The record is a 35-nucleotide RNA from Phyllostomus discolor, which matches "Iron response element I" in Rfam. The match comes from Rfam's covariance-model search (40 bits).

RNA sequence: ACCUCUCUUGCUUCAACAGUGUUUGGACAGAACGU
Numbered sequence: 001a002c003c004u005c006u007c008u009u010g011c012u013u014c015a016a017c018a019g020u021g022u023u024u025g026g027a028c029a030g031a032a033c034g035u
Stems, first nucleotide, its partner, number of pairs: 001035002004032001006031003010028001012027005017021001
By type it is a cis-regulatory element. The literature on the family includes a 1987 paper in Science by Hentze et al., "Identification of the iron-responsive element for the translational regulation of human ferritin mRNA". The family has 62 seed sequences and 6,829 matches in Rfam 15.1. Its family is annotated with response to iron ion in the Gene Ontology.